[Rfam]
RNA sequence: AAGGAGCAUGUGCACUUCAUUAUGAUAUAUAUAUAUAUAUAUAUAUAUAUAUCAUAAUGAAGUGCACAUGCUCCUU
Numbered sequence: 001a002a003g004g005a006g007c008a009u010g011u012g013c014a015c016u017u018c019a020u021u022a023u024g025a026u027a028u029a030u031a032u033a034u035a036u037a038u039a040u041a042u043a044u045a046u047a048u049a050u051a052u053c054a055u056a057a058u059g060a061a062g063u064g065c066a067c068a069u070g071c072u073c074c075u076u
Base pairs, nucleotide, nucleotide: 007070008069009068010067011066012065013064014063015062016061017060018059019058020057021056022055023054024053025052027050028049029048030047031046